[Rfam]
RNA: ZMP/ZTP riboswitch aptamer (pfl RNA motif)
RNA sequence: GCGGCAGGCCGUAACUGGCGCUGAGGUGGACCACCACCGGGGAGCGGCCCGACGCAACCGUCUGAGCCGCGCGCCUGGGCAUCUUCC
Numbered sequence: 001g002c003g004g005c006a007g008g009c010c011g012u013a014a015c016u017g018g019c020g021c022u023g024a025g026g027u028g029g030a031c032c033a034c035c036a037c038c039g040g041g042g043a044g045c046g047g048c049c050c051g052a053c054g055c056a057a058c059c060g061u062c063u064g065a066g067c068c069g070c071g072c073g074c075c076u077g078g079g080c081a082u083c084u085u086c087c
Stems, first nucleotide, its partner, number of pairs: 003053001005051001007049006015041002017075005026037004064082001066080003